Rfam assigns this 72-nucleotide sequence from Hafnia alvei to the family "MicA sRNA". The source organism's lineage runs through Bacteria, Enterobacterales, Hafniaceae, Hafnia and Hafnia alvei. On this family, see Argaman et al., Curr Biol 2001: "Novel small RNA-encoding genes in the intergenic regions of Escherichia coli".

RNA sequence: GAAAGACGCGCAUUUGUUAUCAUCAUCCCUGCUACAGAGAUGCUAUUUUGGCCACAGGUAUUGUGGCCUUUU
Numbered sequence: 001g002a003a004a005g006a007c008g009c010g011c012a013u014u015u016g017u018u019a020u021c022a023u024c025a026u027c028c029c030u031g032c033u034a035c036a037g038a039g040a041u042g043c044u045a046u047u048u049u050g051g052c053c054a055c056a057g058g059u060a061u062u063g064u065g066g067c068c069u070u071u072u
Base pairs, nucleotide, nucleotide: 024042025041026040027039029037030036031035050068051067052066053065054064055063056062